[Rfam]
RNA sequence: ACCUAUGAUGAGCUGCCCAUUGUUUAGAGGAUGUAGUUGGCUCGAGUUCCUGUUUAUCAGGAAGAACCUACUUGUAGCUGCUGCAUUCACAUGUUAUCAACGGGCUACCUGAGGU
Numbered sequence: 001a002c003c004u005a006u007g008a009u010g011a012g013c014u015g016c017c018c019a020u021u022g023u024u025u026a027g028a029g030g031a032u033g034u035a036g037u038u039g040g041c042u043c044g045a046g047u048u049c050c051u052g053u054u055u056a057u058c059a060g061g062a063a064g065a066a067c068c069u070a071c072u073u074g075u076a077g078c079u080g081c082u083g084c085a086u087u088c089a090c091a092u093g094u095u096a097u098c099a100a101c102g103g104g105c106u107a108c109c110u111g112a113g114g115u
Base pairs, nucleotide, nucleotide: 001115002114003113048062049061050060051059052058
The family of this 115-nucleotide sequence is "Small nucleolar RNA Z278". Rfam's curators put it in the seed alignment. Its family is annotated with nucleolus and RNA processing in the Gene Ontology. Rfam's curators write: snoZ278 is a C/D box small nucleolar RNA. Its methylation guide targets have not been reported.